[Rfam]
RNA sequence: UCCCCCUGGCAAUGGGCAAAGGGACACCCUGUGGGUGGUGUUGCUCUUCUAUCAGUCAGGGGCAGAGCACAUGGCAGUUCUCAGUUCACCCUAGCUUGAUGCCUGGCUUUGUGGCCAUAGCUGUACUAUACUUAGUACACAUAA
Numbered sequence: 001u002c003c004c005c006c007u008g009g010c011a012a013u014g015g016g017c018a019a020a021g022g023g024a025c026a027c028c029c030u031g032u033g034g035g036u037g038g039u040g041u042u043g044c045u046c047u048u049c050u051a052u053c054a055g056u057c058a059g060g061g062g063c064a065g066a067g068c069a070c071a072u073g074g075c076a077g078u079u080c081u082c083a084g085u086u087c088a089c090c091c092u093a094g095c096u097u098g099a100u101g102c103c104u105g106g107c108u109u110u111g112u113g114g115c116c117a118u119a120g121c122u123g124u125a126c127u128a129u130a131c132u133u134a135g136u137a138c139a140c141a142u143a144a
Stems, first nucleotide, its partner, number of pairs: 001064001003062006013054003019048003023042006084138002087135001098132001100130001104128003110123002
RNA: Small nucleolar RNA SNORA48
Organism: Mus spicilegus